[Rfam]
RNA sequence: UGAACAGACAGAGGCGCGUUACAGCAUCAGUACCGCAAAAUGAUAAGCUCUCGGCGGAGCGGUUGUAUUUUGCAGGAAAGGGCUUAACGCCGAAGACGUUAUGUGGGCCGGGCAUAGCGAUCUGGGGGUACGGUUAACAGCCGUGUCACUGUCACCGCCUUGCGGUGUUGCGCUGCUGCGAUC
Numbered sequence: 001u002g003a004a005c006a007g008a009c010a011g012a013g014g015c016g017c018g019u020u021a022c023a024g025c026a027u028c029a030g031u032a033c034c035g036c037a038a039a040a041u042g043a044u045a046a047g048c049u050c051u052c053g054g055c056g057g058a059g060c061g062g063u064u065g066u067a068u069u070u071u072g073c074a075g076g077a078a079a080g081g082g083c084u085u086a087a088c089g090c091c092g093a094a095g096a097c098g099u100u101a102u103g104u105g106g107g108c109c110g111g112g113c114a115u116a117g118c119g120a121u122c123u124g125g126g127g128g129u130a131c132g133g134u135u136a137a138c139a140g141c142c143g144u145g146u147c148a149c150u151g152u153c154a155c156c157g158c159c160u161u162g163c164g165g166u167g168u169u170g171c172g173c174u175g176c177u178g179c180g181a182u183c
Stems, first nucleotide, its partner, number of pairs: 007177001009175003016090006023084003033075001035073008094123003097119008124150002127147008153167006

Shown here is a 183-nucleotide RNA from Christensenella minuta, a member of the family "Lysine riboswitch aptamer". Lineage of the source: Bacteria > Bacillati > Bacillota > Christensenellales > Christensenella. Rfam describes the family as follows. Riboswitches are metabolite binding domains within certain messenger RNAs that serve as precision sensors for their corresponding targets. It scores 79 bits against the family's covariance model. A reference for the family is Mandal et al. (2003), "Riboswitches Control Fundamental Biochemical Pathways in Bacillus subtilis and Other Bacteria", Cell.